[Rfam]
RNA sequence: GUUCUUACAAUGUCCGGUGAAGUGUUGGUUAAUGGCAGAAUUCCGCCGGUUAAGUGUCCGUAAACUUUAACCGGACAUUGUAAGAACGG
Numbered sequence: 001g002u003u004c005u006u007a008c009a010a011u012g013u014c015c016g017g018u019g020a021a022g023u024g025u026u027g028g029u030u031a032a033u034g035g036c037a038g039a040a041u042u043c044c045g046c047c048g049g050u051u052a053a054g055u056g057u058c059c060g061u062a063a064a065c066u067u068u069a070a071c072c073g074g075a076c077a078u079u080g081u082a083a084g085a086a087c088g089g
Stems, first nucleotide, its partner, number of pairs: 001087011013075006020068003024065003

Shown here is an 89-nucleotide sequence from Aphis craccivora, a member of the family "mir-3015 microRNA precursor family".
The family's consensus secondary structure was predicted with RNAalifold.